The family of this 82-nucleotide RNA sequence from Podargus strigoides is "mir-46/mir-47/mir-281 microRNA precursor family". Gene Ontology terms of the family: miRNA-mediated post-transcriptional gene silencing and RISC complex. A reference for the family is Lau et al. (2001), "An abundant class of tiny RNAs with probable regulatory roles in Caenorhabditis elegans", Science.

Nucleotides: 082
Base pairs, nucleotide, nucleotide: 014070015069016068017067018066020064021063022062025058026057027056028055031053032052033051035049036048
Number, partner (000 for none) and nucleotide at each position: 001000g002000a003000a004000c005000g006000c007000a008000g009000a010000c011000g012000g013000c014070a015069a016068a017067g018066a019000g020064a021063g022062c023000c024000a025058u026057c027056u028055g029000u030000u031053g032052a033051c034000a035049g036048u037000c038000a039000u040000g041000u042000a043000u044000g045000g046000c047000a048036a049035c050000u051033g052032u053031c054000a055028u056027g057026g058025a059000g060000c061000u062022g063021c064020u065000c066018u067017c068016u069015u070014u071000a072000u073000a074000u075000g076000c077000c078000u079000g080000c081000g082000u